[Rfam]
RNA sequence: UGCGUGGUUACUUGAUUUAGAAUUCCUACGCUUUACCGUGAUUUUUAGACUGGCAAAGCGUCUGGAUUCUGAAUCUGGUACCAUG
Dot-bracket structure: .........(((.((((((((.(((..(((((((.((..............)).)))))))..))).)))))))).)))......
Rfam assigns this 85-nucleotide sequence from Brassicogethes aeneus to the family "mir-927 microRNA precursor family". The match comes from Rfam's covariance-model search (72 bits). On this family, see Berezikov et al., Nat Genet 2010: "Evolutionary flux of canonical microRNAs and mirtrons in Drosophila". The family has 16 seed sequences and 174 matches in Rfam 15.1. Rfam links the family to the GO terms RISC complex and miRNA-mediated post-transcriptional gene silencing.